RNA sequence: UGGCUAUGAUGAGAAAAGUCAUGCACCACUCUGAAGAGAUUUAUCUCUUUGUGCUGAUAAACAAACUUACAACCCAUUUUAAUUCUGAGCCA
Dot-bracket structure: ((((....................................................................................))))
The record is a 92-nucleotide RNA from Aegilops tauschii, which matches "Small nucleolar RNA Z221/R21b" in Rfam. A reference for the family is Chen et al. (2003), "The high diversity of snoRNAs in plants: identification and comparative study of 120 snoRNA genes from Oryza sativa", Nucleic Acids Res. It scores 72 bits against the family's covariance model. The family's consensus secondary structure was predicted with WAR.